[Rfam]
RNA sequence: GCGGAGGGAUCCGAAAAUCCGUAGAAAAGAGUAGGAA
Dot-bracket structure: .((((....[[[.....))))............]]].
RNA: DUF805b RNA